[Rfam]
RNA sequence: ACCUUAUCAAGAGCGACUGAGGGACUAGGCCCUAUGACGUCCGGCAACCUUACCUGUGAGUAAACGGUGCUAAAUCCUACGGAAUGAUUCCAUUCUGAGAGAUAAGUG
Numbered sequence: 001a002c003c004u005u006a007u008c009a010a011g012a013g014c015g016a017c018u019g020a021g022g023g024a025c026u027a028g029g030c031c032c033u034a035u036g037a038c039g040u041c042c043g044g045c046a047a048c049c050u051u052a053c054c055u056g057u058g059a060g061u062a063a064a065c066g067g068u069g070c071u072a073a074a075u076c077c078u079a080c081g082g083a084a085u086g087a088u089u090c091c092a093u094u095c096u097g098a099g100a101g102a103u104a105a106g107u108g
Stems, first nucleotide, its partner, number of pairs: 003106006013042001015041003021032003026079004043071004048067002050063004075100001080097006

This 108-nucleotide RNA sequence from Paenibacillus sp. KS1 belongs to the Rfam family "SAM riboswitch aptamer (S box leader)". For this family Rfam cites "The S box regulon: a new global transcription termination control system for methionine and cysteine biosynthesis genes in gram-positive bacteria" (Grundy and Henkin, Mol Microbiol, 1998).